[Rfam]
RNA sequence: AGAAUGAAAUCAAGCAGGUAGCCUGAAGAAUGGCUUCUCUGUUUACAACACACCCAACAGGAAUCUAGGAUCAUUGUGACAAGGGGCACAAAAUUUGUGACCUCUCUUGGGAGCAAAUGUCCUACACAU
Numbered sequence: 001a002g003a004a005u006g007a008a009a010u011c012a013a014g015c016a017g018g019u020a021g022c023c024u025g026a027a028g029a030a031u032g033g034c035u036u037c038u039c040u041g042u043u044u045a046c047a048a049c050a051c052a053c054c055c056a057a058c059a060g061g062a063a064u065c066u067a068g069g070a071u072c073a074u075u076g077u078g079a080c081a082a083g084g085g086g087c088a089c090a091a092a093a094u095u096u097g098u099g100a101c102c103u104c105u106c107u108u109g110g111g112a113g114c115a116a117a118u119g120u121c122c123u124a125c126a127c128a129u
Base pairs, nucleotide, nucleotide: 002055005052006051012044013043014042015041016040017039018038020036021034022033023032068122069121070120071119075115076114077113080111083103084102085101087099088098089097090096091095
RNA: Small nucleolar RNA SNORA11
Organism: Cavia porcellus